RNA sequence: AAACGACUGAAUUGUCCGCCGUCCCAGACGGUAACAAGCCCAGGUAGCCCGCGAUCUUAAAGGCUACGGCGUGGCGUAUGCCGCGUUGAUUGCGCACCCCCGUUCCGCACCGCAUCCCCUGCGCGGAUACCCACCUGACACGAAGGUGGUGGAUGC
Numbered sequence: 001a002a003a004c005g006a007c008u009g010a011a012u013u014g015u016c017c018g019c020c021g022u023c024c025c026a027g028a029c030g031g032u033a034a035c036a037a038g039c040c041c042a043g044g045u046a047g048c049c050c051g052c053g054a055u056c057u058u059a060a061a062g063g064c065u066a067c068g069g070c071g072u073g074g075c076g077u078a079u080g081c082c083g084c085g086u087u088g089a090u091u092g093c094g095c096a097c098c099c100c101c102g103u104u105c106c107g108c109a110c111c112g113c114a115u116c117c118c119c120u121g122c123g124c125g126g127a128u129a130c131c132c133a134c135c136u137g138a139c140a141c142g143a144a145g146g147u148g149g150u151g152g153a154u155g156c
Base pairs, nucleotide, nucleotide: 012037013036014035015033018032019031020030021029022028023027044067045066046065047064048063049062053093054090055089056088068087069086070085071084072083073082074081123156124155125154131149132148133147134146135145136144